This 229-nucleotide part of an RNA from Ramalina farinacea belongs to the Rfam family "Eukaryotic large subunit ribosomal RNA". The literature on the family includes a 2002 paper in BMC Bioinformatics by Cannone et al., "The comparative RNA web (CRW) site: an online database of comparative sequence and structure information for ribosomal, intron, and other RNAs". It scores 2529 bits against the family's covariance model. Pairs were carried over by alignment from the consensus structure, which is taken from published work. NCBI's taxonomy places the organism under Eukaryota, Opisthokonta, leotiomyceta, Lecanoromycetidae, Ramalina.

RNA sequence: CGCUUGUAACCAGACCUGCCGUCGGGUGCUCCGCGGGCAUUCUUGCCCGUCUACUCACCCGCGAUCAGGCCAGCAUCGGUUUUGGCGGCCGGAUAAAGACUCGAGGAAUGUAGCUUCGCUUCGGGGAAGUGUUAUAGCCUCUUGUGCAAUACGGCCAGCCGGGACCGAGGACCGCGCUUCGGCUAGGAUGCUGGCGUAAUGGUUGCAAGCGACCCGUCUUGAAACACGG
Numbered sequence: 001c002g003c004u005u006g007u008a009a010c011c012a013g014a015c016c017u018g019c020c021g022u023c024g025g026g027u028g029c030u031c032c033g034c035g036g037g038c039a040u041u042c043u044u045g046c047c048c049g050u051c052u053a054c055u056c057a058c059c060c061g062c063g064a065u066c067a068g069g070c071c072a073g074c075a076u077c078g079g080u081u082u083u084g085g086c087g088g089c090c091g092g093a094u095a096a097a098g099a100c101u102c103g104a105g106g107a108a109u110g111u112a113g114c115u116u117c118g119c120u121u122c123g124g125g126g127a128a129g130u131g132u133u134a135u136a137g138c139c140u141c142u143u144g145u146g147c148a149a150u151a152c153g154g155c156c157a158g159c160c161g162g163g164a165c166c167g168a169g170g171a172c173c174g175c176g177c178u179u180c181g182g183c184u185a186g187g188a189u190g191c192u193g194g195c196g197u198a199a200u201g202g203u204u205g206c207a208a209g210c211g212a213c214c215c216g217u218c219u220u221g222a223a224a225c226a227c228g229g
Stems, first nucleotide, its partner, number of pairs: 001211012017067001021065004026060001071193007214229004
Dot-bracket structure: ((((((((((((....(...((((.(.................................).)))).)...(((((((.............................................................................................................)))))))......))))))))))))..((((........))))